[Rfam]
RNA sequence: CAGAGGACUCAUUCGCAAAGAGUGACCCGGCCGCGAAAGCGACCGUGGAAAAACCGGGUGAAUUCAGGGAAAACUCUCUCGGGAGUCAAUCCUGAGCCAAGCCCACCGAAGGCGGGCCUGACGGCCAGUAGGUGGGAAGGUGCAGAGACUAGGACGUGAGGAGCCGAUCCGAUAAACGUCCAUGAGCGCCCGGCACCCUAACGAGCGCAAGCGUCGAGGGUGGUGAGAUAGUCCGGGGAGCAGGGUGACCUGCGC
Numbered sequence: 001c002a003g004a005g006g007a008c009u010c011a012u013u014c015g016c017a018a019a020g021a022g023u024g025a026c027c028c029g030g031c032c033g034c035g036a037a038a039g040c041g042a043c044c045g046u047g048g049a050a051a052a053a054c055c056g057g058g059u060g061a062a063u064u065c066a067g068g069g070a071a072a073a074c075u076c077u078c079u080c081g082g083g084a085g086u087c088a089a090u091c092c093u094g095a096g097c098c099a100a101g102c103c104c105a106c107c108g109a110a111g112g113c114g115g116g117c118c119u120g121a122c123g124g125c126c127a128g129u130a131g132g133u134g135g136g137a138a139g140g141u142g143c144a145g146a147g148a149c150u151a152g153g154a155c156g157u158g159a160g161g162a163g164c165c166g167a168u169c170c171g172a173u174a175a176a177c178g179u180c181c182a183u184g185a186g187c188g189c190c191c192g193g194c195a196c197c198c199u200a201a202c203g204a205g206c207g208c209a210a211g212c213g214u215c216g217a218g219g220g221u222g223g224u225g226a227g228a229u230a231g232u233c234c235g236g237g238g239a240g241c242a243g244g245g246u247g248a249c250c251u252g253c254g255c
Base pairs, nucleotide, nucleotide: 005028009025010024011023012022013021032041033040034039054193055192056191057190059188060187064095065094066093067092068091069090073086074085075084076083077082096141097140102135103134109129145234147233148232149231150230151229196220197219198218199217240253241252242251243250244249
RNA: Group I catalytic intron
Organism: Caenimonas aquaedulcis